This 80-nucleotide RNA from Ophiophagus hannah belongs to the Rfam family "mir-26 microRNA precursor family". On this family, see Lagos-Quintana et al., Science 2001: "Identification of novel genes coding for small expressed RNAs". The organism belongs to Ophiophagus, within Eukaryota. Rfam 15.1 lists 2,251 matches to the family in 645 species.

RNA sequence: CUGCGACCGGGUUCAAGUAAUCCAGGAUAGGCUGUGUGCAAUCUUAAUGGCCUAUCCUUGAUUACUUGCACUGGGACGUA
Numbered sequence: 001c002u003g004c005g006a007c008c009g010g011g012u013u014c015a016a017g018u019a020a021u022c023c024a025g026g027a028u029a030g031g032c033u034g035u036g037u038g039c040a041a042u043c044u045u046a047a048u049g050g051c052c053u054a055u056c057c058u059u060g061a062u063u064a065c066u067u068g069c070a071c072u073g074g075g076a077c078g079u080a
Base pairs, nucleotide, nucleotide: 002080003079004078005077007075008074010072011071012070014068015067016066017065018064019063020062021061022060024058025057026056027055028054029053030052031051032050033049